[Rfam]
RNA: Ribosomal S15 leader
RNA sequence: GCAUACCACUGUAAAUGUGCACGGUGGUGAUGUGAUUUUUUGCACAUUAGACGGAGUAAAGAACAUGGCACUGUCUGCUGAAAAGAAAGCCGAAAUCGUAAAAGAAUUCCAGACCGCUGAA
Numbered sequence: 001g002c003a004u005a006c007c008a009c010u011g012u013a014a015a016u017g018u019g020c021a022c023g024g025u026g027g028u029g030a031u032g033u034g035a036u037u038u039u040u041u042g043c044a045c046a047u048u049a050g051a052c053g054g055a056g057u058a059a060a061g062a063a064c065a066u067g068g069c070a071c072u073g074u075c076u077g078c079u080g081a082a083a084a085g086a087a088a089g090c091c092g093a094a095a096u097c098g099u100a101a102a103a104g105a106a107u108u109c110c111a112g113a114c115c116g117c118u119g120a121a
Base pairs, nucleotide, nucleotide: 007026008025009024010023011022012021050075051074052073053072054071056069